This 138-nucleotide RNA from Histophilus somni belongs to the Rfam family "Molybdenum/Tungsten riboswitch aptamer (Moco RNA motif)". Taxonomically the source falls in Histophilus somni (Bacteria, Pseudomonadati, Pseudomonadota, Histophilus).

[Rfam]
RNA sequence: AAAAACUGACGACUCCGAGCUUGUUGACCUAAGUUGCAAAAUAAGGUUGCAAGCCUGUAACAUUGUCAAAUGUUGCACAUGGUACAACUAGAAAUGGUUGUGCCACUCCCUUUAGAAAGGUGUCGAAAAUAAAACUUU
Numbered sequence: 001a002a003a004a005a006c007u008g009a010c011g012a013c014u015c016c017g018a019g020c021u022u023g024u025u026g027a028c029c030u031a032a033g034u035u036g037c038a039a040a041a042u043a044a045g046g047u048u049g050c051a052a053g054c055c056u057g058u059a060a061c062a063u064u065g066u067c068a069a070a071u072g073u074u075g076c077a078c079a080u081g082g083u084a085c086a087a088c089u090a091g092a093a094a095u096g097g098u099u100g101u102g103c104c105a106c107u108c109c110c111u112u113u114a115g116a117a118a119g120g121u122g123u124c125g126a127a128a129a130u131a132a133a134a135c136u137u138u
Stems, first nucleotide, its partner, number of pairs: 011124003015120002019054006027047003033042003057076007080105011106115002
Dot-bracket structure: ..........(((.((..((((((..(((...(((....)))..))).))))))..(((((((......)))))))...(((((((((((....)))))))))))((......))...)).)))..............
A reference for the family is Regulski et al. (2008), "in molybdenum cofactor and tungsten cofactor metabolism", Mol Microbiol.